Description: The record is a 114-nucleotide RNA sequence from Sinomonas humi, which matches "ALIL pseudoknot" in Rfam. The family has 26 seed sequences and 2,146 matches in Rfam 15.1.
RNA sequence: GGCUUUCUUCGCGGCGGAGCUCGACCGCCCCUCGAGGUGAUGUGCGCCUUCAUCGAGGAGCACCGAGGCGAGCACGGGGUCGAGCCGAUCUGCCGCGUCCUGCAGAUCGCCCCG
Numbered sequence: 001g002g003c004u005u006u007c008u009u010c011g012c013g014g015c016g017g018a019g020c021u022c023g024a025c026c027g028c029c030c031c032u033c034g035a036g037g038u039g040a041u042g043u044g045c046g047c048c049u050u051c052a053u054c055g056a057g058g059a060g061c062a063c064c065g066a067g068g069c070g071a072g073c074a075c076g077g078g079g080u081c082g083a084g085c086c087g088a089u090c091u092g093c094c095g096c097g098u099c100c101u102g103c104a105g106a107u108c109g110c111c112c113c114g
Stems, first nucleotide, its partner, number of pairs: 013029005075114005086109002089106005095100001
Lineage of the source: Bacteria > Actinomycetota > Actinomycetes > Micrococcales > Sinomonas. It scores 97 bits against the family's covariance model.